[Rfam]
RNA sequence: CUCCAAUUGGGUGGUGACACGUGUCACCACUUGAUUGGAGGUGGAAAAUUAAUUAAAUAAAUUAAAUUAAAUAAAAAUAGUUAAAAACUUCCAAUAAGGUGGUGACACGUGUCACCAUCU
Numbered sequence: 001c002u003c004c005a006a007u008u009g010g011g012u013g014g015u016g017a018c019a020c021g022u023g024u025c026a027c028c029a030c031u032u033g034a035u036u037g038g039a040g041g042u043g044g045a046a047a048a049u050u051a052a053u054u055a056a057a058u059a060a061a062u063u064a065a066a067u068u069a070a071a072u073a074a075a076a077a078u079a080g081u082u083a084a085a086a087a088c089u090u091c092c093a094a095u096a097a098g099g100u101g102g103u104g105a106c107a108c109g110u111g112u113c114a115c116c117a118u119c120u
Base pairs, nucleotide, nucleotide: 021108022107025104026103027102029100030099031098032097034095035094036093037092038091039090